This 600-nucleotide part of an RNA from an uncultured bacterium belongs to the Rfam family "Bacterial large subunit ribosomal RNA". The family's consensus secondary structure is taken from published work.
Nucleotides: 600
Stems, first nucleotide, its partner, number of pairs: 005022005025599007034591003038586002046420006052412005058217004065209007074177010085166001087164003091160001101159005108142003117136008181197006220232004233255006256401001258358002264316006270296002273291005297306002321344004327338003346355003369395007377388002429470003433467001434464007444454002481556001482554004486548001487545005494519002497514006521535005562580004566575003
Number, partner (000 for none) and nucleotide at each position: 001000u002000a003000g004000u005022g006021g007020c008019g009018g010000u011000g012000c013000a014000g015000a016000u017000g018009c019008c020007g021006c022005c023000u024000a025599c026598c027597c028596g029595c030594a031593g032000c033000u034591g035590g036589a037000c038586g039585a040000a041000a042000a043000g044000a045000c046420c047419c048418c049417g050416g051415a052412a053411c054410c055409u056408u057000u058217a059216c060215u061214g062000u063000a064000g065209g066208c067207u068206g069205g070204u071203a072000u073000u074177g075176a076175a077174u078173u079172u080171u081170g082169g083168u084000u085166c086000u087164g088163u089162a090000u091160g092000u093000g094000u095000a096000g097000g098000a099000u100000a101159g102158g103157u104156g105155g106000g107000a108142g109141a110140c111000u112000u113000u114000g115000a116000a117136g118135c119134u120133c121132a122131g123130g124129c125000g126000c127000u128000a129124g130123c131122u132121u133120g134119g135118g136117c137000a138000g139000a140110g141109u142108c143000g144000u145000c146000g147000g148000u149000g150000a151000a152000a153000u154000a155105c156104c157103a158102c159101c160091c161000u162089u163088a164087u165000u166085g167000u168083a169082c170081u171080a172079a173078a174077g175076u176075u177074c178000u179000a180000a181197c182196g183195c184194c185193g186192a187000u188000u189000a190000u191000g192186u193185c194184g195183g196182c197181g198000g199000a200000c201000c202000g203071u204070g205069c206068c207067a208066g209065u210000u211000g212000g213000g214061c215060a216059g217058u218000u219000u220232a221231a222230c223229u224000g225000g226000g227000g228000c229223g230222g231221u232220u233255c234254c235253c236252u237251c238250c239000u240000a241000a242000a243000a244000a245000g246000u247000a248000a249000c250238g251237g252236a253235g254234g255233g256401g257000c258358c259357c260000a261000a262000a263000g264316g265315u266314a267313u268312c269311c270296u271295c272000a273291g274290u275289c276288c277287g278000u279000u280000u281000g282000g283000a284000a285000a286000u287277c288276g289275g290274a291273c292000g293000c294000u295271g296270a297306a298305u299000g300000u301000a302000a303000g304000g305298g306297u307000a308000u309000a310000u311269g312268g313267a314266u315265g316264c317000c318000u319000g320000a321344c322343u323342g324341u325000g326000c327338g328337g329336c330000u331000g332000a333000c334000a335000a336329g337328c338327c339000a340000a341324g342323c343322a344321g345000g346355c347354g348353c349000g350000a351000a352000a353348g354347c355346g356000g357259g358258g359000c360000c361000u362000a363000a364000u365000g366000a367000u368000c369395c370394g371393g372392u373391g374390g375389u376000a377388a378387c379000u380000c381000a382000u383000g384000g385000g386000a387378g388377u389375g390374c391373c392372a393371u394370c395369g396000c397000u398000c399000a400000a401256c402000g403000a404000a405000u406000a407000a408056a409055a410054g411053g412052u413000a414000c415051u416050c417049c418048g419047g420046g421000g422000a423000u424000a425000a426000c427000a428000g429470g430469c431468u432000g433467a434464u435463c436462g437461g438460g439459c440458c441000c442000g443000a444454g445453a446000g447000u448000u449000c450000a451000c452000a453445u454444c455000g456000a457000c458440g459439g460438c461437c462436c463435g464434g465000u466000u467433u468431g469430g470429c471000a472000c473000c474000u475000c476000g477000a478000u479000g480000u481556c482554g483553g484552c485551u486548c487545a488544u489543c490542a491541c492000a493000u494519c495518c496000u497514g498513g499512g500511g501510c502509u503000g504000g505000a506000g507000a508000a509502g510501g511500u512499c513498c514497c515000a516000a517000g518495g519494g520000u521535c522534c523533g524532g525531c526000u527000g528000u529000u530000c531525g532524c533523c534522g535521g536000u537000u538000a539000a540000a541491g542490u543489g544488g545487u546000a547000c548486g549000u550000g551485a552484g553483c554482u555000g556481g557000g558000u559000u560000c561000a562580g563579a564578a565577c566575g567574u568573c569000g570000u571000g572000a573568g574567a575566c576000a577565g578564u579563u580562c581000g582000g583000u584000c585039u586038c587000u588000a589036u590035c591034c592000a593031c594030u595029g596028u597027g598026g599025g600000c